[Rfam]
This 236-nucleotide sequence from Acanthisitta chloris belongs to the Rfam family "Small nucleolar RNA SNORD17". It scores 51 bits against the family's covariance model. The snoRNA HBI-43 belongs to the C/D family of snoRNAs, guiding 2'O-ribose methylation at position U3797 of the 28S rRNA. Pseudouridylation in position U3797 is predicted to be guided by the H/ACA snoRNA ACA48. For this family Rfam cites "RNomics: an experimental approach that identifies 201 candidates for novel, small, non-messenger RNAs in mouse" (Huttenhofer et al., EMBO J, 2001). The organism belongs to Acanthisitta, within Eukaryota. Gene Ontology terms of the family: RNA processing and nucleolus. The family has 19 seed sequences and 1,015 matches in Rfam 15.1.
RNA sequence: CUUUCAUCCUGUUCCAUAUCCCACCAUUCCUCAGUGUUGAUGGUUUGAAUACUGAUUCCUGUCCUAGGGUCUGGGUGCUGUGCAGCCUCCAGAGACCCUGCAGUCUCUCAGUGUCCUACUGGGGGCUGCUGUGGUGUGUGGCUGGCUGCCUGCAAGAGGGAAGCAGAGCUGGCAGGGUUGGAUCCCCUCUUUGGGGGGCUCGAACCUCACUGGGAUGAGGGAUGAUGUCUGAUCAC
Numbered sequence: 001c002u003u004u005c006a007u008c009c010u011g012u013u014c015c016a017u018a019u020c021c022c023a024c025c026a027u028u029c030c031u032c033a034g035u036g037u038u039g040a041u042g043g044u045u046u047g048a049a050u051a052c053u054g055a056u057u058c059c060u061g062u063c064c065u066a067g068g069g070u071c072u073g074g075g076u077g078c079u080g081u082g083c084a085g086c087c088u089c090c091a092g093a094g095a096c097c098c099u100g101c102a103g104u105c106u107c108u109c110a111g112u113g114u115c116c117u118a119c120u121g122g123g124g125g126c127u128g129c130u131g132u133g134g135u136g137u138g139u140g141g142c143u144g145g146c147u148g149c150c151u152g153c154a155a156g157a158g159g160g161a162a163g164c165a166g167a168g169c170u171g172g173c174a175g176g177g178u179u180g181g182a183u184c185c186c187c188u189c190u191u192u193g194g195g196g197g198g199c200u201c202g203a204a205c206c207u208c209a210c211u212g213g214g215a216u217g218a219g220g221g222a223u224g225a226u227g228u229c230u231g232a233u234c235a236c
Stems, first nucleotide, its partner, number of pairs: 003232002008227001010225001013221003017217003020213002029172002032168001035165004041157001044154001045152001048079001050077004057069004082149006095135002100129006107123007175207005181201002184198004